[Rfam]
About this RNA:
The record is a 51-nucleotide RNA sequence from Panagrellus redivivus, which matches "mir-7964 microRNA precursor family" in Rfam.
RNA sequence: UAGCCGUGUUUGGGACCCGUGACGAGACCGGGUCGACCACUCGCUGCUACC
Numbered sequence: 001u002a003g004c005c006g007u008g009u010u011u012g013g014g015a016c017c018c019g020u021g022a023c024g025a026g027a028c029c030g031g032g033u034c035g036a037c038c039a040c041u042c043g044c045u046g047c048u049a050c051c
Base pairs, nucleotide, nucleotide: 001049002048003047004046006044007043008042011039012038013037014034015033016032017031018030019029021028